This 135-nucleotide RNA from Stegastes partitus belongs to the Rfam family "Small nucleolar RNA SNORA14".
Gene Ontology terms of the family: RNA processing and nucleolus.
From the family's description: ACA14 is a member of the H/ACA class of snoRNA that guide the sites of modification of uridines to pseudouridines.
RNA sequence: GAGCACCCUUAGUAAACCCCCCAGUUACAAUUUGUGGUCUCUGGGACAAGGAAGGGUGCAAGAUCAAUCUUAGAAUCAUCCAAAGCUGAGAGCCAUGUGUUAGUAGCUCUUGGCUAUUUCACCUCUAAGACAGAA
Dot-bracket structure: ..((((..((.........(((((..((........))..)))))....))....))))....((..(((((((.........(((((((.((..(......)..)).)))))))........)))))))..)).
Numbered sequence: 001g002a003g004c005a006c007c008c009u010u011a012g013u014a015a016a017c018c019c020c021c022c023a024g025u026u027a028c029a030a031u032u033u034g035u036g037g038u039c040u041c042u043g044g045g046a047c048a049a050g051g052a053a054g055g056g057u058g059c060a061a062g063a064u065c066a067a068u069c070u071u072a073g074a075a076u077c078a079u080c081c082a083a084a085g086c087u088g089a090g091a092g093c094c095a096u097g098u099g100u101u102a103g104u105a106g107c108u109c110u111u112g113g114c115u116a117u118u119u120c121a122c123c124u125c126u127a128a129g130a131c132a133g134a135a
Stems, first nucleotide, its partner, number of pairs: 003059004009051002020045005027038002064134002068130007084115007092107002096103001

Source information: It scores 53 bits against the family's covariance model.